[Rfam]
RNA sequence: GUGACAGAAGAGAGUGAGCACACAUGGUUUUUCUUUCAUGAAAGUCCAUGCUCGAAGCUCUGCGUGCUCUCUCUCUAUCUGUCAC
Numbered sequence: 001g002u003g004a005c006a007g008a009a010g011a012g013a014g015u016g017a018g019c020a021c022a023c024a025u026g027g028u029u030u031u032u033c034u035u036u037c038a039u040g041a042a043a044g045u046c047c048a049u050g051c052u053c054g055a056a057g058c059u060c061u062g063c064g065u066g067c068u069c070u071c072u073c074u075c076u077a078u079c080u081g082u083c084a085c
Stems, first nucleotide, its partner, number of pairs: 001085008010075005016069006023062002
The record is an 85-nucleotide RNA sequence from Tetracentron sinense, which matches "mir-156 microRNA precursor family" in Rfam. From the family's description: This family represents the plant microRNA (miRNA) precursor mir-156. The family's consensus secondary structure was predicted with PFOLD. Lineage of the source: Eukaryota > Embryophyta > Euphyllophyta > Spermatophyta > Tetracentron.